[Rfam]
RNA sequence: AACUCAGUACAUUUGAUAGUGUACGUUUAAUAUAAUUGGUGCUUAACCAAUUAAAGAAAGAGUAG
Numbered sequence: 001a002a003c004u005c006a007g008u009a010c011a012u013u014u015g016a017u018a019g020u021g022u023a024c025g026u027u028u029a030a031u032a033u034a035a036u037u038g039g040u041g042c043u044u045a046a047c048c049a050a051u052u053a054a055a056g057a058a059a060g061a062g063u064a065g
Base pairs, nucleotide, nucleotide: 002063003062004061005060007024008023009022010021011020012019013018033053034052035051036050037049038048039047

emrB-Lactobacillus RNA: a 65-nucleotide RNA from Lactobacillus acetotolerans. The match comes from Rfam's covariance-model search (73 bits). The family's consensus secondary structure is taken from published work. The organism belongs to Lactobacillus, within Bacteria. The family's RNA type in Rfam is small RNA.